[Rfam]
RNA sequence: AACGACCGGCCGGACAUCUAUGUGCCCGGCCCACAAGUGGAGGCUCCGAUCUCCCACCUGGCUGUCCGUUCAGGACAGCGGGUCACCGGUCAGGCGGCGACCAUCGUUCCGUACGGACGAUGGGCCCGUCCGAUAGCCCCGCGGUUCACCGCGGCGGUGUUCCGGUAGUUCCUGGAGCCUCGCCUUGUGUCCCGUCCGGGGCAUUUUUG
Numbered sequence: 001a002a003c004g005a006c007c008g009g010c011c012g013g014a015c016a017u018c019u020a021u022g023u024g025c026c027c028g029g030c031c032c033a034c035a036a037g038u039g040g041a042g043g044c045u046c047c048g049a050u051c052u053c054c055c056a057c058c059u060g061g062c063u064g065u066c067c068g069u070u071c072a073g074g075a076c077a078g079c080g081g082g083u084c085a086c087c088g089g090u091c092a093g094g095c096g097g098c099g100a101c102c103a104u105c106g107u108u109c110c111g112u113a114c115g116g117a118c119g120a121u122g123g124g125c126c127c128g129u130c131c132g133a134u135a136g137c138c139c140c141g142c143g144g145u146u147c148a149c150c151g152c153g154g155c156g157g158u159g160u161u162c163c164g165g166u167a168g169u170u171c172c173u174g175g176a177g178c179c180u181c182g183c184c185u186u187g188u189g190u191c192c193c194g195u196c197c198g199g200g201g202c203a204u205u206u207u208u209g
Base pairs, nucleotide, nucleotide: 004091005090006089007088008087009086012027013026028084029083030082031081032080034060035059037057038056039055040054041052042051061079062078063077064076065075066074067073093130094129095128096127097126101123102122103121104120105119106118107117108116136202137201138200139199140198141197142194143193144192150189151188152187153184154183155182156181157180159178160177161176162175163174
About this RNA
Shown here is a 209-nucleotide sequence from Streptomyces sp. PTY087I2, a member of the family "Streptomyces RNA 1601". About the family: Identified by deep sequencing of transcriptome at the end of exponential growth phase. Appears longer on northern blot than sequencing transcript. Streptomyces specific. For this family Rfam cites "Deep sequencing-based identification of small non-coding RNAs in Streptomyces coelicolor" (Vockenhuber et al., RNA Biol, 2011). The family's RNA type in Rfam is small RNA.